[Rfam]
RNA: Pyrrolysine insertion sequence mttB
RNA sequence: UAGGCUGACGCCAAGGUACCUGAUGUACAAGCAGGGCACGAGAAGACAAUCACCACAAUUCUUCCCGCUCUGUCUGGUGCUAACACCAUUUAUGGUGCAG
Numbered sequence: 001u002a003g004g005c006u007g008a009c010g011c012c013a014a015g016g017u018a019c020c021u022g023a024u025g026u027a028c029a030a031g032c033a034g035g036g037c038a039c040g041a042g043a044a045g046a047c048a049a050u051c052a053c054c055a056c057a058a059u060u061c062u063u064c065c066c067g068c069u070c071u072g073u074c075u076g077g078u079g080c081u082a083a084c085a086c087c088a089u090u091u092a093u094g095g096u097g098c099a100g
Stems, first nucleotide, its partner, number of pairs: 003012001025032001033062003077098001079096002